[Rfam]
RNA sequence: UCGCGAUCCCCGGGGGACCGCUCACAGGCGGUUGAGAGGCGGCUGAUGUGGCUGCGACCCGCUGAACCUGAUCCGGUUAAAACCGGCGUAGGGAGGGACGGCUUGUCAAAA
Number, nucleotide and partner (000 for none) at each position: 001u000002c000003g000004c000005g000006a000007u098008c097009c096010c095011c061012g060013g059014g058015g000016g000017a032018c031019c030020g029021c028022u000023c000024a000025c000026a000027g000028g021029c020030g019031g018032u017033u000034g000035a000036g000037a000038g000039g055040c054041g053042g052043c051044u050045g049046a000047u000048g000049u045050g044051g043052c042053u041054g040055c039056g000057a000058c014059c013060c012061g011062c000063u000064g000065a000066a000067c092068c091069u090070g089071a000072u000073c086074c085075g084076g083077u000078u000079a000080a000081a000082a000083c076084c075085g074086g073087c000088g000089u070090a069091g068092g067093g000094a000095g010096g009097g008098a007099c000100g000101g000102c000103u000104u000105g000106u000107c000108a000109a000110a000111a000
This 111-nucleotide RNA sequence belongs to the Rfam family "TPP riboswitch aptamer (THI element)". A reference for the family is Thore et al. (2006), "Structure of the eukaryotic thiamine pyrophosphate riboswitch with its regulatory ligand", Science. About the family: Vitamin B(1) in its active form thiamin pyrophosphate (TPP) is an essential coenzyme that is synthesised by coupling of pyrimidine and thiazole moieties in bacteria.